RNA: mir-35_2 microRNA precursor family
RNA sequence: AGCUGAUUUCACUUUCGGUGAUAUGUCCAUGAUGCGCCUAUCACCGGGUGUAAAUUGGCUCG
Numbered sequence: 001a002g003c004u005g006a007u008u009u010c011a012c013u014u015u016c017g018g019u020g021a022u023a024u025g026u027c028c029a030u031g032a033u034g035c036g037c038c039u040a041u042c043a044c045c046g047g048g049u050g051u052a053a054a055u056u057g058g059c060u061c062g
Stems, first nucleotide, its partner, number of pairs: 001060003005056005010050004016046008